Shown here is a 77-nucleotide RNA from Sapajus apella, a member of the family "mir-320 microRNA precursor family". The base pairs follow the family's consensus structure, which was predicted with RNAalifold.
RNA sequence: AAUAAAUUAGUCCCGCCUCUUUCUAGUUCUUCCUAGAGUGAGGAAAAGCUGGGUUGAGAGGGCAGACAAAUUUACUA
Number, nucleotide and partner (000 for none) at each position: 001a000002a000003u000004a000005a000006a000007u000008u000009a000010g000011u000012c000013c000014c060015g000016c000017c058018u057019c056020u000021u000022u053023c052024u051025a050026g049027u000028u000029c000030u045031u044032c043033c042034u041035a000036g000037a000038g000039u000040g000041a034042g033043g032044a031045a030046a000047a000048g000049c026050u025051g024052g023053g022054u000055u000056g019057a018058g017059a000060g014061g000062g000063c000064a000065g000066a000067c000068a000069a000070a000071u000072u000073u000074a000075c000076u000077a000
The organism belongs to Sapajus, within Eukaryota.